RNA sequence: ACACACACUGAGUGGCCAGAUUAUUACGUAUUCAGAGAUCAUAGUAAUCUGGCCACUCAGUGUGUAU
Dot-bracket structure: ...((((((((((((((.((((((((.(...........).)))))))).))))))))))))))...
mir-9256 microRNA precursor family: a 67-nucleotide sequence from Pipistrellus kuhlii. The base pairs follow the family's consensus structure, which was predicted with RNAalifold. Its family is annotated with miRNA-mediated post-transcriptional gene silencing and RISC complex in the Gene Ontology. The match comes from Rfam's covariance-model search (81 bits).